[Rfam]
RNA: Guanidine-II riboswitch aptamer (mini-ykkC)
Organism: Nordella sp. HKS 07
RNA sequence: CGUGCAGGACGACCUGCGCCUUGACUACCCCCGGGGACGACCUCG
Numbered sequence: 001c002g003u004g005c006a007g008g009a010c011g012a013c014c015u016g017c018g019c020c021u022u023g024a025c026u027a028c029c030c031c032c033g034g035g036g037a038c039g040a041c042c043u044c045g
Base pairs, nucleotide, nucleotide: 001018002017005016006015007014008013032045033044034043035042036041